[Rfam]
RNA sequence: GAUGAAAGCUGCAGAACCAACCAAGCAGACAGGUAGAAAAAGCCUUUUGUCUACAAAUGACACAAUCUUACAUAAACAUGAUGGUUGUCUGACUUAGGACAGCUGGCUAAGUCUGGUUGUUCCCCUCCAUGUAAC
Numbered sequence: 001g002a003u004g005a006a007a008g009c010u011g012c013a014g015a016a017c018c019a020a021c022c023a024a025g026c027a028g029a030c031a032g033g034u035a036g037a038a039a040a041a042g043c044c045u046u047u048u049g050u051c052u053a054c055a056a057a058u059g060a061c062a063c064a065a066u067c068u069u070a071c072a073u074a075a076a077c078a079u080g081a082u083g084g085u086u087g088u089c090u091g092a093c094u095u096a097g098g099a100c101a102g103c104u105g106g107c108u109a110a111g112u113c114u115g116g117u118u119g120u121u122c123c124c125c126u127c128c129a130u131g132u133a134a135c
Stems, first nucleotide, its partner, number of pairs: 004068001006066001008063001010062002025054001027052004035045002080128001083125002085119001087117003091113007
This 135-nucleotide sequence from Cricetulus griseus belongs to the Rfam family "Small Cajal body specific RNA 3". By type it is a small Cajal body RNA. Taxonomically the source falls in Cricetulus (Eukaryota, Opisthokonta, Metazoa, Eutheria). A reference for the family is Darzacq et al. (2002), "Cajal body-specific small nuclear RNAs: a novel class of 2'-O-methylation and pseudouridylation guide RNAs", EMBO J. About the family: scaRNAs are a specific class of small nuclear RNAs which localise to the Cajal bodies and guide the modification of RNA polymerase II transcribed spliceosomal RNAs U1, U2, U4, U5 and U12. Its family is annotated with Cajal body, nucleolus and RNA processing in the Gene Ontology.